[Rfam]
RNA sequence: AGUGAAGGUAGAGGUGCGAGUUUCAUUAGUAAAAGUUCCUUAGAAGAUUGAGCUUCGUUUGAAGGACUUUGAAAGGGAAUAUUCGCCGAAGUGAAGAAAGACUCAAUAUUUUCUUCGCUGGUUCUGCAUUGAAUAAAUGCAGGAUUGUCAAGACUAUCUGUCUUGGAGGGCUAUCUCACUG
Numbered sequence: 001a002g003u004g005a006a007g008g009u010a011g012a013g014g015u016g017c018g019a020g021u022u023u024c025a026u027u028a029g030u031a032a033a034a035g036u037u038c039c040u041u042a043g044a045a046g047a048u049u050g051a052g053c054u055u056c057g058u059u060u061g062a063a064g065g066a067c068u069u070u071g072a073a074a075g076g077g078a079a080u081a082u083u084c085g086c087c088g089a090a091g092u093g094a095a096g097a098a099a100g101a102c103u104c105a106a107u108a109u110u111u112u113c114u115u116c117g118c119u120g121g122u123u124c125u126g127c128a129u130u131g132a133a134u135a136a137a138u139g140c141a142g143g144a145u146u147g148u149c150a151a152g153a154c155u156a157u158c159u160g161u162c163u164u165g166g167a168g169g170g171c172u173a174u175c176u177c178a179c180u181g
Stems, first nucleotide, its partner, number of pairs: 006176006016086006022079003032070007090119011120146011148166007
RNA: Lysine riboswitch aptamer